[Rfam]
RNA sequence: UCUGACAGGUCAGAGGAUGUGGCUCAAAGGAAUCUUUAAUCUUAGAGCUGAACAAUAAG
Dot-bracket structure: (((((....))))).(....(((((...................)))))...)......
RNA: eL15-Euryarchaeota ribosomal protein leader
Organism: Equus caballus